Rfam assigns this 203-nucleotide RNA sequence from Todus mexicanus to the family "Small nucleolar RNA SNORA74". Rfam links the family to the GO terms nucleolus and RNA processing. Its Rfam clan is "SNORA74 clan". U19 belongs to the H/ACA class of snoRNAs. snoRNAs bind a number of proteins (including dyskerin, Gar1p and Nop10p in the case of the H/ACA class) to form snoRNP complexes. This class are thought to guide the sites of modification of uridines to pseudouridines by forming direct base pairing interactions with substrate RNAs. Targets may include ribosomal and spliceosomal RNAs but the exact functions of many snoRNAs, including U19, are not confirmed.

RNA sequence: UCCAGCGGUAGUCAGCUGUCCAGAGCGGUACCGUGCCUGUGGUAGUGUUACACCGCUGGGAGAUAAGGAUCAGUCAUUUCUUCUGGCUGCUGCUGCCACCGUUCUGGAGACAGCCGGUGCCAAAAAGAAGUGGCGCUGUGCUUCCCUGAGAGCGCACUAAAGGUUUGCUCUGCCUCUUUAGUGCUAGUCUGGAAGCAUACAUA
Numbered sequence: 001u002c003c004a005g006c007g008g009u010a011g012u013c014a015g016c017u018g019u020c021c022a023g024a025g026c027g028g029u030a031c032c033g034u035g036c037c038u039g040u041g042g043u044a045g046u047g048u049u050a051c052a053c054c055g056c057u058g059g060g061a062g063a064u065a066a067g068g069a070u071c072a073g074u075c076a077u078u079u080c081u082u083c084u085g086g087c088u089g090c091u092g093c094u095g096c097c098a099c100c101g102u103u104c105u106g107g108a109g110a111c112a113g114c115c116g117g118u119g120c121c122a123a124a125a126a127g128a129a130g131u132g133g134c135g136c137u138g139u140g141c142u143u144c145c146c147u148g149a150g151a152g153c154g155c156a157c158u159a160a161a162g163g164u165u166u167g168c169u170c171u172g173c174c175u176c177u178u179u180a181g182u183g184c185u186a187g188u189c190u191g192g193a194a195g196c197a198u199a200c201a202u203a
Base pairs, nucleotide, nucleotide: 001060002059003058004057005056006055007054008053009052011051012050015046016045017044018043019042020041021039022038023037068136073134074133075132076131082128083127084126086120087119090116093113094112097109099107100106138198139197140196141195142194143193144192145191154184155183156182158180159179160178161177162176163175